[Rfam]
RNA sequence: UGUUACCAGGCAGUGUAGUUAGCUGAUUGACAAAGCAACAGUCACUAACAACACAGCCAGGUGAAA
Number, nucleotide and partner (000 for none) at each position: 001u000002g000003u064004u063005a062006c061007c000008a000009g058010g057011c000012a000013g054014u053015g052016u051017a000018g049019u048020u047021a046022g045023c000024u044025g043026a042027u041028u040029g039030a000031c000032a000033a000034a000035g000036c000037a000038a000039c029040a028041g027042u026043c025044a024045c022046u021047a020048a019049c018050a000051a016052c015053a014054c013055a000056g000057c010058c009059a000060g000061g006062u005063g004064a003065a000066a000
mir-34 microRNA precursor family: a 66-nucleotide RNA from Pogona vitticeps.
The base pairs follow the family's consensus structure, which was predicted with RNAalifold.
Clan: mir-34 clan.
Gene Ontology terms of the family: RISC complex and miRNA-mediated post-transcriptional gene silencing.
On this family, see Lim et al., Science 2003: "Vertebrate microRNA genes".